[Rfam]
RNA sequence: UUUGGUGCAGUGAUUAUAAAACAUUCCUCGUACUGAUGGAAAAUCCCUGUGAACGACAUCUAUACACCCAUAGAAUCUGAGCACCA
Numbered sequence: 001u002u003u004g005g006u007g008c009a010g011u012g013a014u015u016a017u018a019a020a021a022c023a024u025u026c027c028u029c030g031u032a033c034u035g036a037u038g039g040a041a042a043a044u045c046c047c048u049g050u051g052a053a054c055g056a057c058a059u060c061u062a063u064a065c066a067c068c069c070a071u072a073g074a075a076u077c078u079g080a081g082c083a084c085c086a
Stems, first nucleotide, its partner, number of pairs: 003086002006083002
This 86-nucleotide RNA from Aegilops tauschii belongs to the Rfam family "Small nucleolar RNA snoR8a". Its family is annotated with nucleolus and RNA processing in the Gene Ontology. Pairs were carried over by alignment from the consensus structure, which was predicted with WAR.